[Rfam]
RNA: L25-Gammaproteobacteria ribosomal protein leader
RNA sequence: CCGCUGCUGGGUCGCCUGUAGCGGU
Number, nucleotide and partner (000 for none) at each position: 001c024002c023003g022004c021005u020006g019007c018008u000009g016010g015011g000012u000013c000014g000015c010016c009017u000018g007019u006020a005021g004022c003023g002024g001025u000